[Rfam]
RNA sequence: UAUUUUGAUAGAGGUUGCAAAUUUUAUUAGUAAAUAAACUGAGAUUAGUAGAUCAAAGAUGUUUGUUAAAAGGAAAAUUUGCCGAAGUUUAAGUUUUUCUACUAAAAAAUUUAAGCUGGGUACAUAAAGAAUAUUUAUGUAACUGUCACCAAAUUGGUGUUGUGCUAUCGUGGAU
Numbered sequence: 001u002a003u004u005u006u007g008a009u010a011g012a013g014g015u016u017g018c019a020a021a022u023u024u025u026a027u028u029a030g031u032a033a034a035u036a037a038a039c040u041g042a043g044a045u046u047a048g049u050a051g052a053u054c055a056a057a058g059a060u061g062u063u064u065g066u067u068a069a070a071a072g073g074a075a076a077a078u079u080u081g082c083c084g085a086a087g088u089u090u091a092a093g094u095u096u097u098u099c100u101a102c103u104a105a106a107a108a109a110u111u112u113a114a115g116c117u118g119g120g121u122a123c124a125u126a127a128a129g130a131a132u133a134u135u136u137a138u139g140u141a142a143c144u145g146u147c148a149c150c151a152a153a154u155u156g157g158u159g160u161u162g163u164g165c166u167a168u169c170g171u172g173g174a175u
Stems, first nucleotide, its partner, number of pairs: 006170006017082009033067007086117012118144002121141008147159005
The record is a 175-nucleotide RNA from Cetobacterium somerae, which matches "Lysine riboswitch aptamer" in Rfam. Lineage of the source: Bacteria > Fusobacteriia > Fusobacteriales > Cetobacterium > Cetobacterium somerae.